[Rfam]
A member of the RNA family "GcvB RNA" from Salmonella enterica, 198 nucleotides long. The gcvB gene encodes a small untranslated RNA involved in expression of the dipeptide and oligopeptide transport systems in Escherichia coli. Taxonomically the source falls in Salmonella enterica subsp. enterica serovar Choleraesuis (Bacteria, Pseudomonadati, Enterobacterales, Salmonella enterica subsp. enterica). It is one of the family's seed sequences.

RNA sequence: ACUUCCUGAGCCGGAACGAAAAGUUUUAUCGGAAUGCGUGUUCUGAUGGGCUUUUGGCUUACGGUUGUGAUGUUGUGUUUGCAAUUGGUCUGCGAUUCAGACCACGGUAGCGAGACUACCCUUUUUCACUUCCUGUACAUUUACCCUGUCUGUCCAUAGUGAUUAAUGUAGCACCGCCAUAUUGCGGUGCUUUUUUUU
Numbered sequence: 001a002c003u004u005c006c007u008g009a010g011c012c013g014g015a016a017c018g019a020a021a022a023g024u025u026u027u028a029u030c031g032g033a034a035u036g037c038g039u040g041u042u043c044u045g046a047u048g049g050g051c052u053u054u055u056g057g058c059u060u061a062c063g064g065u066u067g068u069g070a071u072g073u074u075g076u077g078u079u080u081g082c083a084a085u086u087g088g089u090c091u092g093c094g095a096u097u098c099a100g101a102c103c104a105c106g107g108u109a110g111c112g113a114g115a116c117u118a119c120c121c122u123u124u125u126u127c128a129c130u131u132c133c134u135g136u137a138c139a140u141u142u143a144c145c146c147u148g149u150c151u152g153u154c155c156a157u158a159g160u161g162a163u164u165a166a167u168g169u170a171g172c173a174c175c176g177c178c179a180u181a182u183u184g185c186g187g188u189g190c191u192u193u194u195u196u197u198u
Base pairs, nucleotide, nucleotide: 009059010058011057012056015055016054021053022052023051024050025049026048028047029046030045031044032043033042034041035040086104087103088102089101090100091099092098106120107119108118109117110116137169138168139167140166141165170191171190172189173188174187175186176185177184